This 63-nucleotide RNA from Microtus ochrogaster belongs to the Rfam family "Small nucleolar RNA SNORD42". The literature on the family includes a 2001 paper in EMBO J by Huttenhofer et al., "RNomics: an experimental approach that identifies 201 candidates for novel, small, non-messenger RNAs in mouse". The organism belongs to Microtus, within Eukaryota. It scores 54 bits against the family's covariance model. Gene Ontology terms of the family: RNA processing and nucleolus. Rfam describes the family as follows. snoRNA U42 is found in intron 3 of the ribosomal protein L23a (RPL23a) gene in humans and is also present in mice.

RNA sequence: CUGCAAAUGAUGGAAAACUCAAAUAUUUGGGAAAAAAUGACACCAAAGGUACCACUGAUGCAG
Numbered sequence: 001c002u003g004c005a006a007a008u009g010a011u012g013g014a015a016a017a018c019u020c021a022a023a024u025a026u027u028u029g030g031g032a033a034a035a036a037a038u039g040a041c042a043c044c045a046a047a048g049g050u051a052c053c054a055c056u057g058a059u060g061c062a063g
Base pairs, nucleotide, nucleotide: 001063002062003061004060005059